[Rfam]
Shown here is a 300-nucleotide sequence from Zostera marina, a member of the family "Plant signal recognition particle RNA". It scores 173 bits against the family's covariance model. It is annotated as a non-coding RNA gene.

RNA sequence: GCUGAGCUCGGUCACGUGGGCUUGUCACCAAGUGGAGCAUUAAGGUAUUUGAAUAAUUUGGUAUUGAAUUCAAGGUUGACAUUAUGAGCUAGCUUUGAUUUGUCCGUUUCCAAGUUGGGCAGUGGAUGCUAUGUUUCAGGCUAACGCUUGAAUCAUAUUCUCCCUAAACUUGAGGGUAAUGCGUGAGGCUGGUUUCACAGAGCAGCGAUUACCUCUCACUCUCAACGGUGGAAGGAUUACAAGUCAUUUGCUCAAAUCGUCAAUUACACUUGGAAUCCACCAAAAUCAACAAAUAUUUUU
Numbered sequence: 001g002c003u004g005a006g007c008u009c010g011g012u013c014a015c016g017u018g019g020g021c022u023u024g025u026c027a028c029c030a031a032g033u034g035g036a037g038c039a040u041u042a043a044g045g046u047a048u049u050u051g052a053a054u055a056a057u058u059u060g061g062u063a064u065u066g067a068a069u070u071c072a073a074g075g076u077u078g079a080c081a082u083u084a085u086g087a088g089c090u091a092g093c094u095u096u097g098a099u100u101u102g103u104c105c106g107u108u109u110c111c112a113a114g115u116u117g118g119g120c121a122g123u124g125g126a127u128g129c130u131a132u133g134u135u136u137c138a139g140g141c142u143a144a145c146g147c148u149u150g151a152a153u154c155a156u157a158u159u160c161u162c163c164c165u166a167a168a169c170u171u172g173a174g175g176g177u178a179a180u181g182c183g184u185g186a187g188g189c190u191g192g193u194u195u196c197a198c199a200g201a202g203c204a205g206c207g208a209u210u211a212c213c214u215c216u217c218a219c220u221c222u223c224a225a226c227g228g229u230g231g232a233a234g235g236a237u238u239a240c241a242a243g244u245c246a247u248u249u250g251c252u253c254a255a256a257u258c259g260u261c262a263a264u265u266a267c268a269c270u271u272g273g274a275a276u277c278c279a280c281c282a283a284a285a286u287c288a289a290c291a292a293a294u295a296u297u298u299u300u
Base pairs, nucleotide, nucleotide: 001038002037003036004023005022006021007020008019009018010017028035029034042299043298044297045296046295047294048293049292050291051290055286057284058283059282066277068276069275070274071273073271074270075269076268078261079260080259081257082256083255086253087252088251089250091249092248096246097245098244099243100242101241102240103239104235105234108233109232110231111230112229114226115225116224117223118222119221121220122219123218124163125162126161128159130157131156132155133154135152136151137150138149139148140147141146172215173214174213175212182207183206184205189200190199191198
Dot-bracket structure: ((((((((((......)))))))....((....)))))...((((((((((...(.(((......(.((((.((((.((((((..((((.((...((((((((((..(((((.((((((.((((((.(.((((.(((((((....))))))).)))).).)))........((((......(((....(((......)))....)))....))))..)))))))))..)))))))...)))))))).)))))).))).)))......)))).)))))....))).)...)))))))))).